Rfam assigns this 216-nucleotide sequence from Chitinophaga pinensis to the family "Group II catalytic intron D1-D4-6". The pairing is the family consensus, mapped onto this sequence.
Nucleotides: 216
Base pairs, nucleotide, nucleotide: 010036011035012034013033018030019029020028022185024183025182038085039084042082043081044080045079046077047076048072049071050070053068054067055066056065057064058063106210107208109207110206111205112204113203114202129201130200131199132198133197134196135160136159137158140155141154142153143152165195166194167193170190171189172188173187174186
Number, partner (000 for none) and nucleotide at each position: 001000u002000u003000a004000a005000u006000c007000c008000u009000g010036u011035c012034c013033g014000a015000c016000a017000a018030g019029g020028u021000c022185u023000a024183g025182u026000c027000a028020a029019c030018c031000a032000c033013c034012g035011g036010a037000a038085g039084c040000g041000a042082g043081u044080c045079u046077u047076g048072c049071g050070u051000a052000g053068u054067c055066a056065u057064u058063a059000g060000a061000g062000a063058u064057g065056a066055u067054g068053g069000c070050a071049c072048g073000a074000a075000g076047c077046g078000u079045a080044g081043a082042c083000a084039g085038c086000g087000a088000c089000u090000g091000c092000u093000g094000a095000a096000g097000g098000u099000a100000u101000g102000c103000u104000a105000u106210u107208g108000a109207g110206c111205c112204u113203c114202g115000a116000a117000a118000c119000u120000g121000u122000c123000c124000u125000a126000g127000a128000c129201g130200u131199u132198g133197a134196a135160g136159c137158u138000u139000u140155a141154g142153u143152u144000g145000u146000u147000c148000g149000a150000a151000a152143a153142g154141c155140u156000a157000a158137g159136g160135c161000a162000a163000c164000a165195u166194c167193a168000a169000a170190c171189c172188u173187g174186c175000g176000u177000u178000a179000u180000a181000g182025a183024c184000g185022a186174g187173u188172g189171g190170g191000g192000g193167u194166g195165a196134u197133u198132c199131g200130a201129c202114c203113g204112g205111g206110g207109u208107c209000u210106a211000a212000g213000a214000a215000c216000a

Rfam's curators put it in the seed alignment.
Taxonomically the source falls in Chitinophaga pinensis (Bacteria, Chitinophagales, Chitinophagaceae, Chitinophaga).
Rfam's curators write: Group II introns are found in rRNA, tRNA and mRNA of organelles in fungi, plants and protists, and also in mRNA in bacteria.